A member of the RNA family "Small nucleolar RNA SNORD25" from Tripterygium wilfordii, 85 nucleotides long.
Clan: SNORD25 clan.
Pairs were carried over by alignment from the consensus structure, which was predicted with PFOLD.
For this family Rfam cites "A mammalian gene with introns instead of exons generating stable RNA products" (Tycowski et al., Nature, 1996).
The match comes from Rfam's covariance-model search (64 bits).
[Rfam]
RNA sequence: AUGAACGAUGAUGAGCCUAACAGACCUGUAAUGAUUUGCGGAAAUGAUCGCAACUCAUUAAGAACAUCUAAGGGACUGAGUUUUG
Numbered sequence: 001a002u003g004a005a006c007g008a009u010g011a012u013g014a015g016c017c018u019a020a021c022a023g024a025c026c027u028g029u030a031a032u033g034a035u036u037u038g039c040g041g042a043a044a045u046g047a048u049c050g051c052a053a054c055u056c057a058u059u060a061a062g063a064a065c066a067u068c069u070a071a072g073g074g075a076c077u078g079a080g081u082u083u084u085g
Stems, first nucleotide, its partner, number of pairs: 003083004